Rfam assigns this 105-nucleotide RNA sequence to the family "Plastid-rps12 3UTR RNA". For this family Rfam cites "Retrograde signaling in plants: A critical review focusing on the GUN pathway and beyond" (Richter et al., Plant Commun, 2023). Plastid rpl20 is a non-coding RNA (ncRNA) recognised in plastids.

RNA sequence: GGUUUCUAUUGGUAUAAAUCCAACCGUCUCAAUUUUCAAUUUAAGAUGAAAAAUAAUUUCCCAUUGGUAGCAAAUGGUUAUCCACUAAGCAGGGGAAAUACUAUU
Numbered sequence: 001g002g003u004u005u006c007u008a009u010u011g012g013u014a015u016a017a018a019u020c021c022a023a024c025c026g027u028c029u030c031a032a033u034u035u036u037c038a039a040u041u042u043a044a045g046a047u048g049a050a051a052a053a054u055a056a057u058u059u060c061c062c063a064u065u066g067g068u069a070g071c072a073a074a075u076g077g078u079u080a081u082c083c084a085c086u087a088a089g090c091a092g093g094g095g096a097a098a099u100a101c102u103a104u105u
Stems, first nucleotide, its partner, number of pairs: 009023004059094003064084001066082006